The record is a 131-nucleotide RNA sequence from Salvelinus namaycush, which matches "Small nucleolar RNA SNORA3/SNORA45 family" in Rfam. The family is grouped with related families in Rfam's "SNORA3 clan". It scores 71 bits against the family's covariance model. Rfam classes the family as an H/ACA-box small nucleolar RNA. Rfam describes the family as follows. The members of this family belong to the H/ACA class of snoRNAs which are thought to guide the sites of modification of uridines to pseudouridines. Pairs were carried over by alignment from the consensus structure, which was predicted with RNAalifold.

RNA sequence: UCAGAGACUCAGAGUCACAUCUUGACAAACACCGUUGUUUUGGUGUGCUAGAGUUCUCUAAGAGUGAAGACUGUUCCUAUUCACCGGCUGGCCCUGUAAUAGGUCAAUCGGCCACAUGGACAGUUACAAGU
Numbered sequence: 001u002c003a004g005a006g007a008c009u010c011a012g013a014g015u016c017a018c019a020u021c022u023u024g025a026c027a028a029a030c031a032c033c034g035u036u037g038u039u040u041u042g043g044u045g046u047g048c049u050a051g052a053g054u055u056c057u058c059u060a061a062g063a064g065u066g067a068a069g070a071c072u073g074u075u076c077c078u079a080u081u082c083a084c085c086g087g088c089u090g091g092c093c094c095u096g097u098a099a100u101a102g103g104u105c106a107a108u109c110g111g112c113c114a115c116a117u118g119g120a121c122a123g124u125u126a127c128a129a130g131u
Stems, first nucleotide, its partner, number of pairs: 003059004007054003013049002016047006024039004071123006084111004089106005